[Rfam]
RNA sequence: AUGUCAAAGCUUGAUACGCACCUGAAUCGGCAGUUACAUACAGACCAAUAGUAUAUUAGUACAUAUGCCGGUUUGGGUUCGUAUCAAACUAUGAUAUAC
Numbered sequence: 001a002u003g004u005c006a007a008a009g010c011u012u013g014a015u016a017c018g019c020a021c022c023u024g025a026a027u028c029g030g031c032a033g034u035u036a037c038a039u040a041c042a043g044a045c046c047a048a049u050a051g052u053a054u055a056u057u058a059g060u061a062c063a064u065a066u067g068c069c070g071g072u073u074u075g076g077g078u079u080c081g082u083a084u085c086a087a088a089c090u091a092u093g094a095u096a097u098a099c
Stems, first nucleotide, its partner, number of pairs: 001097006008090002011087008020078013